[Rfam]
mir-9014 microRNA precursor family: an 88-nucleotide RNA sequence from Equus caballus. Lineage of the source: Eukaryota > Metazoa > Dipnotetrapodomorpha > Perissodactyla > Equus.

RNA sequence: GGUGCCACAGGGAGGGAUCCCAAUCCAGCUGUAGGAAAAGAAACCUUCCACGGGAGUCUUGGAGAUUGGCGACCGUCCUCGUGACUUA
Numbered sequence: 001g002g003u004g005c006c007a008c009a010g011g012g013a014g015g016g017a018u019c020c021c022a023a024u025c026c027a028g029c030u031g032u033a034g035g036a037a038a039a040g041a042a043a044c045c046u047u048c049c050a051c052g053g054g055a056g057u058c059u060u061g062g063a064g065a066u067u068g069g070c071g072a073c074c075g076u077c078c079u080c081g082u083g084a085c086u087u088a
Stems, first nucleotide, its partner, number of pairs: 002087001004085001006083003010079004015074002018071001020069006029062002038060004044054003